[Rfam]
mir-315 microRNA precursor family: an 87-nucleotide sequence from Diaphorina citri. Taxonomically the source falls in Diaphorina (Eukaryota, Protostomia, Ecdysozoa, Panarthropoda). For this family Rfam cites "Evolution, biogenesis, expression, and target predictions of a substantially expanded set of Drosophila microRNAs" (Ruby et al., Genome Res, 2007). The match comes from Rfam's covariance-model search (64 bits).
RNA sequence: UACUGAAAUGUUUUUGAUUGUUGCUCAGAAAGCCGAGAAUUUUAUUUUGAAACAGACUUUCAAGCAAUAAUCAUGAACAGAUUAGUG
Numbered sequence: 001u002a003c004u005g006a007a008a009u010g011u012u013u014u015u016g017a018u019u020g021u022u023g024c025u026c027a028g029a030a031a032g033c034c035g036a037g038a039a040u041u042u043u044a045u046u047u048u049g050a051a052a053c054a055g056a057c058u059u060u061c062a063a064g065c066a067a068u069a070a071u072c073a074u075g076a077a078c079a080g081a082u083u084a085g086u087g
Stems, first nucleotide, its partner, number of pairs: 001087006012076002015073004020068006028061005034055001